[Rfam]
RNA sequence: AUUAAUAACUGAGGUCGAGAACCUCUAAAAAUUAAA
Number, nucleotide and partner (000 for none) at each position: 001a000002u035003u034004a033005a032006u031007a000008a000009c000010u000011g025012a024013g023014g022015u021016c000017g000018a000019g000020a000021a015022c014023c013024u012025c011026u000027a000028a000029a000030a000031a006032u005033u004034a003035a002036a000
The family of this 36-nucleotide RNA from Capnocytophaga canis is "S16-Flavobacteria ribosomal protein leader". The family's consensus secondary structure is taken from published work. The literature on the family includes a 2020 paper in BMC Microbiol by Eckert and Weinberg, "Discovery of 20 novel ribosomal leader candidates in bacteria and archaea". Rfam classes the family as a cis-regulatory leader.